[Rfam]
RNA sequence: ACAACACUUUAGGGGUGUCCUGUCGCCAAACAGAAAGGCAGGACUGAGAAAUACCCUCUGAACCUGAUACAGUUAGCACUGACGAAGGGAAAAGUUAUGACGAGAUA
Numbered sequence: 001a002c003a004a005c006a007c008u009u010u011a012g013g014g015g016u017g018u019c020c021u022g023u024c025g026c027c028a029a030a031c032a033g034a035a036a037g038g039c040a041g042g043a044c045u046g047a048g049a050a051a052u053a054c055c056c057u058c059u060g061a062a063c064c065u066g067a068u069a070c071a072g073u074u075a076g077c078a079c080u081g082a083c084g085a086a087g088g089g090a091a092a093a094g095u096u097a098u099g100a101c102g103a104g105a106u107a
Stems, first nucleotide, its partner, number of pairs: 006095005011057004016051001017044008063088003070081003
The family of this 107-nucleotide RNA sequence from Pontibacter akesuensis is "TPP riboswitch aptamer (THI element)". Gene Ontology term of the family: thiamine pyrophosphate binding. Lineage of the source: Bacteria > Pseudomonadati > Bacteroidota > Hymenobacteraceae > Pontibacter. Vitamin B(1) in its active form thiamin pyrophosphate (TPP) is an essential coenzyme that is synthesised by coupling of pyrimidine and thiazole moieties in bacteria. The previously detected thiamin-regulatory element, thi box was extended, resulting in a new, highly conserved RNA secondary structure, the THI element, which is widely distributed in eubacteria and also occurs in some archaea.